[Rfam]
RNA sequence: UCCUAGCCCUGAUAGAAGUGGAAAUCCUUUUGUGCCGGUGUUCGGCACAAAAGAUUGGAACAUAUAGCAGGAAAUAGC
Numbered sequence: 001u002c003c004u005a006g007c008c009c010u011g012a013u014a015g016a017a018g019u020g021g022a023a024a025u026c027c028u029u030u031u032g033u034g035c036c037g038g039u040g041u042u043c044g045g046c047a048c049a050a051a052a053g054a055u056u057g058g059a060a061c062a063u064a065u066a067g068c069a070g071g072a073a074a075u076a077g078c
Stems, first nucleotide, its partner, number of pairs: 009070003013066002018061002023056004029051008
A member of the RNA family "Flavo-1 RNA" from Flavobacterium bizetiae, 78 nucleotides long. The family's RNA type in Rfam is small RNA.